[Rfam]
RNA sequence: AUGUACUAACCUCUAGCUUUUCUUAUACCUUUUGCCUGCUACCUUGGCAUUACAUCUAAAAAGGUACAAACAUCGCAUUGUCAUAAAGAGGUGGUUUUAGUACGUAGGCGCUGUGGGACUUCAUUGUCCCGGUGAUGCAGUGAAUCGUGACUACGAGAUUGUCCAGUAGUUGGUGCUCGUAUCUUUAGAAGAUUUCCUUCCUCGGCGAUC
Number, nucleotide and partner (000 for none) at each position: 001a000002u000003g000004u000005a000006c000007u000008a000009a000010c000011c000012u000013c000014u000015a000016g000017c000018u000019u000020u000021u000022c000023u000024u000025a000026u000027a000028c000029c000030u000031u000032u000033u000034g000035c000036c000037u000038g000039c000040u066041a065042c064043c063044u062045u061046g000047g000048c000049a000050u000051u000052a000053c000054a000055u000056c000057u000058a000059a000060a000061a045062a044063g043064g042065u041066a040067c000068a000069a000070a000071c000072a209073u208074c207075g206076c205077a000078u000079u000080g000081u000082c000083a000084u000085a000086a000087a000088g203089a202090g201091g200092u000093g197094g196095u000096u000097u000098u000099a000100g000101u149102a148103c147104g146105u000106a000107g000108g000109c142110g141111c140112u139113g138114u137115g130116g129117g128118a127119c126120u000121u000122c000123a000124u000125u000126g119127u118128c117129c116130c115131g000132g000133u000134g000135a000136u000137g114138c113139a112140g111141u110142g109143a000144a000145u000146c104147g103148u102149g101150a000151c000152u181153a180154c179155g178156a177157g176158a000159u000160u000161g000162u000163c000164c000165a000166g000167u000168a000169g000170u000171u000172g000173g000174u000175g000176c157177u156178c155179g154180u153181a152182u000183c000184u000185u000186u000187a000188g000189a000190a000191g000192a000193u000194u000195u000196c094197c093198u000199u000200c091201c090202u089203c088204g000205g076206c075207g074208a073209u072210c000
RNA: R2 RNA element